[Rfam]
RNA sequence: CAAAAUUAUAUAAAGAUUGCUCGUAUAACCUCAACAAUAUGGAUUGGGGGUUUCUACUGGAAGCCACAAACUUUCCUAGCUACGAGAAAAAGCCGCUUUAUG
Numbered sequence: 001c002a003a004a005a006u007u008a009u010a011u012a013a014a015g016a017u018u019g020c021u022c023g024u025a026u027a028a029c030c031u032c033a034a035c036a037a038u039a040u041g042g043a044u045u046g047g048g049g050g051u052u053u054c055u056a057c058u059g060g061a062a063g064c065c066a067c068a069a070a071c072u073u074u075c076c077u078a079g080c081u082a083c084g085a086g087a088a089a090a091a092g093c094c095g096c097u098u099u100a101u102g
Stems, first nucleotide, its partner, number of pairs: 018088001020086006029049006058078001059076002061073003
Dot-bracket structure: .................(.((((((...((((((.........))))))........((((((.......))).)).)..)))))).)..............
The record is a 102-nucleotide RNA from Aneurinibacillus migulanus, which matches "Purine riboswitch aptamer" in Rfam. Lineage of the source: Bacteria > Bacillati > Bacillota > Paenibacillaceae > Aneurinibacillus. The family has 133 seed sequences and 4,097 matches in Rfam 15.1. The base pairs follow the family's consensus structure, which is taken from published work. A search with the family's covariance model found it, with a score of 65 bits.